[Rfam]
RNA: c-di-GMP-I riboswitch aptamer
Organism: Candidatus Borkfalkia ceftriaxoniphila
RNA sequence: AUAAGUUAAAAGCAAAGUAUCCAAAAGGGUAUGACGCAAAGCUAAGAGCCUAAGUCGCAAGAUAUGGUUGUCAGUUGCCAAA
Numbered sequence: 001a002u003a004a005g006u007u008a009a010a011a012g013c014a015a016a017g018u019a020u021c022c023a024a025a026a027g028g029g030u031a032u033g034a035c036g037c038a039a040a041g042c043u044a045a046g047a048g049c050c051u052a053a054g055u056c057g058c059a060a061g062a063u064a065u066g067g068u069u070g071u072c073a074g075u076u077g078c079c080a081a082a
Base pairs, nucleotide, nucleotide: 012037013036017032018031019030020029021028022027040076041075042074043073046072047071048068049067050066055062056061
Dot-bracket structure: ...........((...((((((....))))))...))..((((..(((((....((....))...)))..))))))......